[Rfam]
RNA sequence: GGACCUGAUAUCAAACAAGACUACCCGCUGAACUUAAGCAUAUCAUUAAGCGGAGGAAAAGAAACUAACAAGGAUUCCCCUAGUAACGGCGAGUGAAGCGGGAAGAGCUCAAGCUUAAAAUCUCCAUGUGUAAACAUGGCGAAUUGUAGUCUAUAGAGGCUGUUGUCAGCAUCGCGAUCUGGGAAAAGUCCCUUGGAAAAGGGCAGCACAGAGGGUGAUACUCCCGUCUUUGCUCAGAUCGUUUGGUGUGUACGAUACGCUUUCUUUGAGUCGAGUUGUUUGGGAAUACAGCUCAAAGUAGGUGGUAAAUUCCAUCUAAAGCUAAAUAUUGGUGCGAGACCGAUAGCGAACAAGUACCGUGAGGGAAAGAUGAAAAGAACUUUGAAAAGAGAGUUAAAGAGUACCUGAAACUGUUGAAAGGGAAC
Numbered sequence: 001g002g003a004c005c006u007g008a009u010a011u012c013a014a015a016c017a018a019g020a021c022u023a024c025c026c027g028c029u030g031a032a033c034u035u036a037a038g039c040a041u042a043u044c045a046u047u048a049a050g051c052g053g054a055g056g057a058a059a060a061g062a063a064a065c066u067a068a069c070a071a072g073g074a075u076u077c078c079c080c081u082a083g084u085a086a087c088g089g090c091g092a093g094u095g096a097a098g099c100g101g102g103a104a105g106a107g108c109u110c111a112a113g114c115u116u117a118a119a120a121u122c123u124c125c126a127u128g129u130g131u132a133a134a135c136a137u138g139g140c141g142a143a144u145u146g147u148a149g150u151c152u153a154u155a156g157a158g159g160c161u162g163u164u165g166u167c168a169g170c171a172u173c174g175c176g177a178u179c180u181g182g183g184a185a186a187a188g189u190c191c192c193u194u195g196g197a198a199a200a201g202g203g204c205a206g207c208a209c210a211g212a213g214g215g216u217g218a219u220a221c222u223c224c225c226g227u228c229u230u231u232g233c234u235c236a237g238a239u240c241g242u243u244u245g246g247u248g249u250g251u252a253c254g255a256u257a258c259g260c261u262u263u264c265u266u267u268g269a270g271u272c273g274a275g276u277u278g279u280u281u282g283g284g285a286a287u288a289c290a291g292c293u294c295a296a297a298g299u300a301g302g303u304g305g306u307a308a309a310u311u312c313c314a315u316c317u318a319a320a321g322c323u324a325a326a327u328a329u330u331g332g333u334g335c336g337a338g339a340c341c342g343a344u345a346g347c348g349a350a351c352a353a354g355u356a357c358c359g360u361g362a363g364g365g366a367a368a369g370a371u372g373a374a375a376a377g378a379a380c381u382u383u384g385a386a387a388a389g390a391g392a393g394u395u396a397a398a399g400a401g402u403a404c405c406u407g408a409a410a411c412u413g414u415u416g417a418a419a420g421g422g423a424a425c
Stems, first nucleotide, its partner, number of pairs: 024055001025053005035042002065072002076103004086094002106323004113150003118145002121142002124139004156264002158261003164257004170248005176242001178238006188204001190203004207211001214224002273294007300317005357364002380391004
Eukaryotic large subunit ribosomal RNA: a 425-nucleotide part of an RNA from Achlya hypogyna. The source organism's lineage runs through Eukaryota, Stramenopiles, Oomycota, Saprolegniomycetes and Achlya.